[Rfam]
RNA sequence: AUAAAAACUGUGAAGGUGAAUAAGUAGGGUAUUCCUUCCCCACAGAGAGGAUGUGUCAUCGGCUGAAAGCAUAUCCGGGGUUCAGGCUUAUCUCGAAUUUCGGCACCGGAGUUGCCUUUAAGAUAUCGGCUAUAUUAGCUUGAUAAAAGAAAGGCCGGAUGUUUCCGUUAUAACAUACAAGGAGUCUUUAAAGCUAAAACAGGCUAUAAAGGCUUAAACUUGGGUGGUACCACGAUGCUCUCGUCCCUAUG
Numbered sequence: 001a002u003a004a005a006a007a008c009u010g011u012g013a014a015g016g017u018g019a020a021u022a023a024g025u026a027g028g029g030u031a032u033u034c035c036u037u038c039c040c041c042a043c044a045g046a047g048a049g050g051a052u053g054u055g056u057c058a059u060c061g062g063c064u065g066a067a068a069g070c071a072u073a074u075c076c077g078g079g080g081u082u083c084a085g086g087c088u089u090a091u092c093u094c095g096a097a098u099u100u101c102g103g104c105a106c107c108g109g110a111g112u113u114g115c116c117u118u119u120a121a122g123a124u125a126u127c128g129g130c131u132a133u134a135u136u137a138g139c140u141u142g143a144u145a146a147a148a149g150a151a152a153g154g155c156c157g158g159a160u161g162u163u164u165c166c167g168u169u170a171u172a173a174c175a176u177a178c179a180a181g182g183a184g185u186c187u188u189u190a191a192a193g194c195u196a197a198a199a200c201a202g203g204c205u206a207u208a209a210a211g212g213c214u215u216a217a218a219c220u221u222g223g224g225u226g227g228u229a230c231c232a233c234g235a236u237g238c239u240c241u242c243g244u245c246c247c248u249a250u251g
Stems, first nucleotide, its partner, number of pairs: 007112002015107004027094003030090002038079003049076008115154005156167003183214007222247003232244004